[Rfam]
RNA sequence: AAACAAGCUAUGAACGAGACAAAAGGUUUGUUGUUCAAUCUUCAGAGAGCCGGUGUAUGGUGCGAACCGGUAGAUGGCAGCAUUCAUAAUAUCCCUCGAGAGCUCUUACACCGAAUUAAGUAGGUGCAGGCGAUCAUUCACGUUACGAAUAGGACUACAAGUACAAUGUAGGGUGGUACCGCGAUCAUCGCCCCUAUC
Numbered sequence: 001a002a003a004c005a006a007g008c009u010a011u012g013a014a015c016g017a018g019a020c021a022a023a024a025g026g027u028u029u030g031u032u033g034u035u036c037a038a039u040c041u042u043c044a045g046a047g048a049g050c051c052g053g054u055g056u057a058u059g060g061u062g063c064g065a066a067c068c069g070g071u072a073g074a075u076g077g078c079a080g081c082a083u084u085c086a087u088a089a090u091a092u093c094c095c096u097c098g099a100g101a102g103c104u105c106u107u108a109c110a111c112c113g114a115a116u117u118a119a120g121u122a123g124g125u126g127c128a129g130g131c132g133a134u135c136a137u138u139c140a141c142g143u144u145a146c147g148a149a150u151a152g153g154a155c156u157a158c159a160a161g162u163a164c165a166a167u168g169u170a171g172g173g174u175g176g177u178a179c180c181g182c183g184a185u186c187a188u189c190g191c192c193c194c195u196a197u198c
Base pairs, nucleotide, nucleotide: 007103008102015098016097017096018095026085029082030081038075039074040073049071050070051069052068053067054066106129107128109126110125111124112123131142132141170195171194172193173192181191182190183189184188
RNA: T-box leader
Organism: Dialister succinatiphilus